[Rfam]
RNA: Bacterial small subunit ribosomal RNA, nucleotides 930 to 1526
Organism: Candidatus Omnitrophus magneticus
RNA sequence: UGACGGGGACCCGCACAAGCGGUGGAGCAUGUGGUUUAAUUCGAUGCUACGCGAGGAACCUUACCUAGGUUUGACAUGCAGGUAGUAGAAGCUUGAAAGAGUAACGAUCUGUUCAGUCAGAAUCCUGCACAGGUGCUGCAUGGCUGUCGUCAGCUCGUGUUGUGAGAUGUUGGGUUAAGUCCCGCAACGAGCGCAACCAUCGUCCUUUGUUGCUAAUUCGCCUUUGGCGAAAGCACUCUAAGGAGACUGCCAGUGUUCAACUGGAGGAAGGAGGAGAUGACGUCAAGUCAGUAUGGCCCUUACACCUAGGGCUACACACGUGCUACAAUGGGCGAUACAAAGAGACGCAAGACCGCGAGGUGGAGCAAAUCUCAAAAAAUCGUCCCCAGUUCAGAUCGGAGGCUGCAAUUCGCCUCCGUGAAGUUGGAAUCGCUAGUAACCGCAGAUCAGCAAUGCUGCGGUGAAUACGUUCCCGGGUCUUGUACACACCGCCUGUCAAGUCACCUGAGUCGAGUGCACCCGAAGCCGCUAACUUAACCUUUACGGGAGAGAGGCGUCGAAGGUGUGCUUGGUGAGGAGGACUAAGUCAUAACAAGG
Numbered sequence: 001u002g003a004c005g006g007g008g009a010c011c012c013g014c015a016c017a018a019g020c021g022g023u024g025g026a027g028c029a030u031g032u033g034g035u036u037u038a039a040u041u042c043g044a045u046g047c048u049a050c051g052c053g054a055g056g057a058a059c060c061u062u063a064c065c066u067a068g069g070u071u072u073g074a075c076a077u078g079c080a081g082g083u084a085g086u087a088g089a090a091g092c093u094u095g096a097a098a099g100a101g102u103a104a105c106g107a108u109c110u111g112u113u114c115a116g117u118c119a120g121a122a123u124c125c126u127g128c129a130c131a132g133g134u135g136c137u138g139c140a141u142g143g144c145u146g147u148c149g150u151c152a153g154c155u156c157g158u159g160u161u162g163u164g165a166g167a168u169g170u171u172g173g174g175u176u177a178a179g180u181c182c183c184g185c186a187a188c189g190a191g192c193g194c195a196a197c198c199a200u201c202g203u204c205c206u207u208u209g210u211u212g213c214u215a216a217u218u219c220g221c222c223u224u225u226g227g228c229g230a231a232a233g234c235a236c237u238c239u240a241a242g243g244a245g246a247c248u249g250c251c252a253g254u255g256u257u258c259a260a261c262u263g264g265a266g267g268a269a270g271g272a273g274g275a276g277a278u279g280a281c282g283u284c285a286a287g288u289c290a291g292u293a294u295g296g297c298c299c300u301u302a303c304a305c306c307u308a309g310g311g312c313u314a315c316a317c318a319c320g321u322g323c324u325a326c327a328a329u330g331g332g333c334g335a336u337a338c339a340a341a342g343a344g345a346c347g348c349a350a351g352a353c354c355g356c357g358a359g360g361u362g363g364a365g366c367a368a369a370u371c372u373c374a375a376a377a378a379a380u381c382g383u384c385c386c387c388a389g390u391u392c393a394g395a396u397c398g399g400a401g402g403c404u405g406c407a408a409u410u411c412g413c414c415u416c417c418g419u420g421a422a423g424u425u426g427g428a429a430u431c432g433c434u435a436g437u438a439a440c441c442g443c444a445g446a447u448c449a450g451c452a453a454u455g456c457u458g459c460g461g462u463g464a465a466u467a468c469g470u471u472c473c474c475g476g477g478u479c480u481u482g483u484a485c486a487c488a489c490c491g492c493c494u495g496u497c498a499a500g501u502c503a504c505c506u507g508a509g510u511c512g513a514g515u516g517c518a519c520c521c522g523a524a525g526c527c528g529c530u531a532a533c534u535u536a537a538c539c540u541u542u543a544c545g546g547g548a549g550a551g552a553g554g555c556g557u558c559g560a561a562g563g564u565g566u567g568c569u570u571g572g573u574g575a576g577g578a579g580g581a582c583u584a585a586g587u588c589a590u591a592a593c594a595a596g597g
Stems, first nucleotide, its partner, number of pairs: 001486002003483003007480007015470002019433005024326001026324008034315002040055004064310007077129006088105001091102004108121003132299002135297004141293002143288003146284001148282002153192006159168003171184004198276001200274002203244005209238001213233002217231003247267002250264005330385007342373003347366002352361003392423001397418007439462007489596001491593001494589002499583004505577002509573012525558001527556004533551003538547002